[Rfam]
RNA sequence: GCUCCUUCGCCCAGUGUUCAGACUACCUGUUAAGGACAAUGCCGUUGUACAGCAGUCUGCAUAUCCGUUAGACUGGGCA
Numbered sequence: 001g002c003u004c005c006u007u008c009g010c011c012c013a014g015u016g017u018u019c020a021g022a023c024u025a026c027c028u029g030u031u032a033a034g035g036a037c038a039a040u041g042c043c044g045u046u047g048u049a050c051a052g053c054a055g056u057c058u059g060c061a062u063a064u065c066c067g068u069u070a071g072a073c074u075g076g077g078c079a
Base pairs, nucleotide, nucleotide: 012067014064015063016062017061019059020058021057022056023055024054027052028051029050030049033046
This 79-nucleotide RNA sequence from Carlito syrichta belongs to the Rfam family "mir-199 microRNA precursor family". NCBI's taxonomy places the organism under Eukaryota, Bilateria, Vertebrata, Theria, Carlito. Its family is annotated with miRNA-mediated post-transcriptional gene silencing and RISC complex in the Gene Ontology. Rfam's curators write: This family consists of the microRNA (miRNA) precursor mir-199 which appears to be specific to humans. Animal miRNAs are transcribed as ~70nt precursors and subsequently processed by the Dicer enzyme to give a ~22nt product. In this case the mature sequence comes from the 3' arm of the precursor. The extents of the hairpin precursors are not generally known and are estimated based on hairpin prediction. The products are thought to have regulatory roles through complementarity to mRNA. The involvement of Dicer in miRNA processing suggests a relationship with the phenomenon of RNA interference. miRNAs are numbered based on the sequence of the mature RNA. The base pairs follow the family's consensus structure, which was predicted with RNAalifold. The family has 83 seed sequences and 1,828 matches in Rfam 15.1.